[Rfam]
RNA sequence: AAUUACAUUGUAUAACACACUCAUAUAAUGCCGAAAAUAAGGUUCGGAAGUUUCUACCGGAUGACCGUAAAUCAUCUGACUAUGGGUGAAAUUAUUAUAGGA
Numbered sequence: 001a002a003u004u005a006c007a008u009u010g011u012a013u014a015a016c017a018c019a020c021u022c023a024u025a026u027a028a029u030g031c032c033g034a035a036a037a038u039a040a041g042g043u044u045c046g047g048a049a050g051u052u053u054c055u056a057c058c059g060g061a062u063g064a065c066c067g068u069a070a071a072u073c074a075u076c077u078g079a080c081u082a083u084g085g086g087u088g089a090a091a092u093u094a095u096u097a098u099a100g101g102a
Base pairs, nucleotide, nucleotide: 018088019087020086021085022084023083024082025081029049031047032046033045034044035043058078059077060076061075062074063073064072
Dot-bracket structure: .................((((((((...(.(((((.......))))).)........(((((((.......)))))))..))))))))..............